[Rfam]
RNA: chrB-a RNA
Organism: Methylobrevis pamukkalensis
RNA sequence: GCCAAGGGGCAGAUCGCGAUCACCCCGUGAGGCGUCAGCCGAACGAUCGCGUCCACGAACCUCGCACAGGGGGAACGGGCGCGCAUG
Numbered sequence: 001g002c003c004a005a006g007g008g009g010c011a012g013a014u015c016g017c018g019a020u021c022a023c024c025c026c027g028u029g030a031g032g033c034g035u036c037a038g039c040c041g042a043a044c045g046a047u048c049g050c051g052u053c054c055a056c057g058a059a060c061c062u063c064g065c066a067c068a069g070g071g072g073g074a075a076c077g078g079g080c081g082c083g084c085a086u087g
Stems, first nucleotide, its partner, number of pairs: 006026004049082006